Shown here is a 162-nucleotide RNA sequence from Mesocricetus auratus, a member of the family "U1 spliceosomal RNA". U1 is a small nuclear RNA (snRNA) component of the spliceosome (involved in pre-mRNA splicing). Its 5' end forms complementary base pairs with the 5' splice junction, thus defining the 5' donor site of an intron. There are significant differences in sequence and secondary structure between metazoan and yeast U1 snRNAs, the latter being much longer (568 nucleotides as compared to 164 nucleotides in human). Nevertheless, secondary structure predictions suggest that all U1 snRNAs share a 'common core' consisting of helices I, II, the proximal region of III, and IV. This family does not contain the larger yeast sequences.

[Rfam]
Nucleotides: 162
Stems, first nucleotide, its partner, number of pairs: 012121004016048006023042003027038001049089004054085001056082003060078003064075001092115002094112003098108002136161005144153003
Number, partner (000 for none) and nucleotide at each position: 001000u002000c003000a004000c005000u006000c007000a008000c009000c010000u011000g012121g013120c014119a015118g016048g017047g018046g019045a020044g021043g022000u023042a024041c025040c026000c027038u028000g029000a030000u031000c032000a033000c034000g035000a036000a037000g038027a039000c040025g041024g042023u043021u044020u045019u046018c047017c048016c049089a050088g051087g052086g053000c054085g055000a056082g057081g058080c059000u060078u061077a062076u063000c064075c065000u066000g067000u068000g069000c070000a071000c072000u073000g074000c075064g076062a077061u078060g079000u080058g081057c082056u083000g084000a085054c086052c087051c088050c089049u090000g091000a092115g093114a094112u095111u096110u097000c098108u099107c100000c101000a102000a103000a104000u105000g106000u107099g108098g109000g110096a111095a112094a113000c114093u115092c116000g117000a118015c119014u120013g121012c122000a123000u124000a125000a126000u127000u128000u129000g130000u131000g132000g133000u134000a135000u136161g137160g138159g139158g140157g141000c142000c143000u144153g145152c146151g147000u148000u149000c150000g151146c152145g153144c154000u155000c156000u157140c158139c159138c160137c161136u162000g
Pairs were carried over by alignment from the consensus structure, which is taken from published work. For this family Rfam cites "The uRNA database" (Zwieb, Nucleic Acids Res, 1997).